[Rfam]
Rfam assigns this 98-nucleotide RNA sequence from Cocos nucifera to the family "Small nucleolar RNA R64/Z200 family".
RNA sequence: CUGAUGCUAUGAUGACUUAUGAAAUACUAUCUUCGCAUGUCAGACUUCGGAGAUGCUAAUGCGUCUAUGAGAAGAUAUUUCAUUUGUCUGAGCAAAAU
Numbered sequence: 001c002u003g004a005u006g007c008u009a010u011g012a013u014g015a016c017u018u019a020u021g022a023a024a025u026a027c028u029a030u031c032u033u034c035g036c037a038u039g040u041c042a043g044a045c046u047u048c049g050g051a052g053a054u055g056c057u058a059a060u061g062c063g064u065c066u067a068u069g070a071g072a073a074g075a076u077a078u079u080u081c082a083u084u085u086g087u088c089u090g091a092g093c094a095a096a097a098u
Base pairs, nucleotide, nucleotide: 002097005094006093007092052065053064054063055062

It is annotated as a C/D-box small nucleolar RNA.
The match comes from Rfam's covariance-model search (73 bits).
Pairs were carried over by alignment from the consensus structure, which was predicted with PFOLD.
Its family is annotated with nucleolus and RNA processing in the Gene Ontology.